[Rfam]
RNA sequence: GGUGCCCUGACCGAGUGGCUAGGUAGCGGUCUGCAAAACCGUCCACAGCAGUUCGAAUCUGCUGGGCACCU
Number, nucleotide and partner (000 for none) at each position: 001g070002g069003u068004g067005c066006c065007c064008u000009g000010a024011c023012c022013g000014a000015g000016u000017g000018g000019c000020u000021a000022g012023g011024u010025a000026g042027c041028g040029g039030u038031c000032u000033g000034c000035a000036a000037a000038a030039c029040c028041g027042u026043c000044c000045a000046c000047a063048g062049c061050a060051g059052u000053u000054c000055g000056a000057a000058u000059c051060u050061g049062c048063u047064g007065g006066g005067c004068a003069c002070c001071u000
RNA: tRNA